[Rfam]
RNA: Rhodo-rpoB RNA
Organism: Thalassovita taeanensis
RNA sequence: CGAUCGGGAGGCCUCUGGUGGGACAGGGGCCGUGAAUGGAUCAGAAUCAGACCGUCUCGUAUGGGCGAGGUGCCGGGGCCCGACGGCAUCCGCG
Numbered sequence: 001c002g003a004u005c006g007g008g009a010g011g012c013c014u015c016u017g018g019u020g021g022g023a024c025a026g027g028g029g030c031c032g033u034g035a036a037u038g039g040a041u042c043a044g045a046a047u048c049a050g051a052c053c054g055u056c057u058c059g060u061a062u063g064g065g066c067g068a069g070g071u072g073c074c075g076g077g078g079c080c081c082g083a084c085g086g087c088a089u090c091c092g093c094g
Stems, first nucleotide, its partner, number of pairs: 002042004010031008066094002069091002071088005
Dot-bracket structure: .((((....((((((((......)))))))).......)))).......................((.(((((((........))))).)).))